Annotation:
The record is a 71-nucleotide RNA sequence from Megalops atlanticus, which matches "Small nucleolar RNA SNORD82" in Rfam. Rfam 15.1 lists 649 matches to the family in 590 species. For this family Rfam cites "Purified box C/D snoRNPs are able to reproduce site-specific 2'-O-methylation of target RNA in vitro" (Galardi et al., Mol Cell Biol, 2002). It scores 64 bits against the family's covariance model. The family's RNA type in Rfam is C/D-box small nucleolar RNA. The family's consensus secondary structure was predicted with PFOLD. NCBI's taxonomy places the organism under Eukaryota, Metazoa, Neopterygii, Teleostei, Megalops.

RNA sequence: GGCACAUAUGAUGAACAAAAAGGGACUUAAUGCUGAAAAAGUGAUGUAAUCAUUUGGUUAAUCUGAUGUGC
Numbered sequence: 001g002g003c004a005c006a007u008a009u010g011a012u013g014a015a016c017a018a019a020a021a022g023g024g025a026c027u028u029a030a031u032g033c034u035g036a037a038a039a040a041g042u043g044a045u046g047u048a049a050u051c052a053u054u055u056g057g058u059u060a061a062u063c064u065g066a067u068g069u070g071c
Stems, first nucleotide, its partner, number of pairs: 002071005